RNA sequence: AGAGGUCAUAUGUUUGAGGCCACAGAAGAAGCACUCAUAGCAUAGUCAUGUCAGAUUCCAAUGAAUCUGUUAAUUCUACU
Numbered sequence: 001a002g003a004g005g006u007c008a009u010a011u012g013u014u015u016g017a018g019g020c021c022a023c024a025g026a027a028g029a030a031g032c033a034c035u036c037a038u039a040g041c042a043u044a045g046u047c048a049u050g051u052c053a054g055a056u057u058c059c060a061a062u063g064a065a066u067c068u069g070u071u072a073a074u075u076c077u078a079c080u
Base pairs, nucleotide, nucleotide: 013048018047019046020045024080025079027077028076029075030074031043052069053068054067055066056065057064058063

Shown here is an 80-nucleotide sequence from Alligator sinensis, a member of the family "Mammalian CPEB3 ribozyme". The mammalian CPEB3 ribozyme is a self cleaving RNA located in the second intron of the CPEB3 gene which belongs to a family of genes regulating messenger RNA polyadenylation. This ribozyme is highly conserved and found only in mammals. The CPEB3 ribozyme is structurally and biochemically related to the human hepatitis delta virus (HDV) ribozyme and the HDV ribozyme is proposed to have arisen from the human transcriptome. Lineage of the source: Eukaryota > Deuterostomia > Tetrapoda > Alligatorinae > Alligator. It scores 36 bits against the family's covariance model.